[Rfam]
RNA: Fluoride riboswitch aptamer (crcB RNA motif)
Organism: Acidomonas methanolica
RNA sequence: AUCAACGAAGGCAAUGGACUCUGCCUGGCCGCCGUGGCCGAACCGCCCCCAGGGCUGAUGACUCCUACCUCGCC
Number, nucleotide and partner (000 for none) at each position: 001a000002u000003c000004a000005a000006c000007g000008a000009a000010g025011g024012c023013a022014a000015u000016g065017g064018a063019c000020u061021c060022u013023g012024c011025c010026u000027g000028g000029c000030c000031g000032c000033c000034g000035u000036g000037g000038c000039c000040g000041a000042a000043c000044c000045g055046c054047c053048c000049c000050c000051a000052g000053g047054g046055c045056u000057g000058a000059u000060g021061a020062c000063u018064c017065c016066u000067a000068c000069c000070u000071c000072g000073c000074c000